[Rfam]
RNA sequence: GUUCUAUUCGCUAAACCUCCAAGGCCUUUCAUAAGACCUAGUGAACAAUUUUUGGGGACCCUAUCUUUUUAAGGUAGGGUU
Numbered sequence: 001g002u003u004c005u006a007u008u009c010g011c012u013a014a015a016c017c018u019c020c021a022a023g024g025c026c027u028u029u030c031a032u033a034a035g036a037c038c039u040a041g042u043g044a045a046c047a048a049u050u051u052u053u054g055g056g057g058a059c060c061c062u063a064u065c066u067u068u069u070u071a072a073g074g075u076a077g078g079g080u081u
Stems, first nucleotide, its partner, number of pairs: 022039003026035003058080009

Description:
Shown here is an 81-nucleotide RNA from Caenorhabditis elegans, a member of the family "SmY spliceosomal RNA". It is annotated as a spliceosomal small nuclear RNA.